[Rfam]
The record is a 393-nucleotide RNA sequence from Candidatus Tokpelaia sp., which matches "Alphaproteobacteria transfer-messenger RNA" in Rfam.
Clan: tRNA clan.
By type it is a non-coding RNA gene.
The base pairs follow the family's consensus structure, which is taken from published work.

RNA sequence: AUCCUUGCAAAUUAUGCCGCCAUGGUCUAUAUUAUCGGCUGCCGGCUCGCCGGCUAUGGUGAUAAACGGACUGUGUAAUAAACCCAUUGGACUCGGGGGCAGUACCCGACGCCUCCACCAUAAAGCAAUCCGGGCGCGCUUGCAGGCAAAGCGUGCCUGACGGCAGAAGAUUGGGUUGCUUUAUGGCGGGGGCGAAACAGGAUCGACAAGGGCGUAAAGAUUGCUCUUUUACCCGGCAUUGUUCCGCCGUUAUCGGGCUUAUGUAUAAUUGCAAACGACAAUUAUGCGGAGGCACGUCUUGCUGCUUAAUUGCGGCUGACAACCUCACUUCAAGUCUUGUUCUCUCGCAGGAGCAAGCGGGGUUGCAGGCACCCGGCAACAGAAGCCUGCAUU
Dot-bracket structure: ........................................(((((....)))))...(((((.....((.(.((........(((.(((...(((((.......)))))(((((((.......................................................................)))))))............)))))).......)).).))..)))))((((...[.[[[)))).....]]]].....................................................................................................[[[[.((((((]]]]..........))))))...